[Rfam]
RNA sequence: AGCCACUGAUGAAAUUUGAUUCUGCCGAAUGAAUUACUGUGAUAUCACACUUUCCGUUCCACUUAGUUCUGAGGUU
Numbered sequence: 001a002g003c004c005a006c007u008g009a010u011g012a013a014a015u016u017u018g019a020u021u022c023u024g025c026c027g028a029a030u031g032a033a034u035u036a037c038u039g040u041g042a043u044a045u046c047a048c049a050c051u052u053u054c055c056g057u058u059c060c061a062c063u064u065a066g067u068u069c070u071g072a073g074g075u076u
Stems, first nucleotide, its partner, number of pairs: 001076004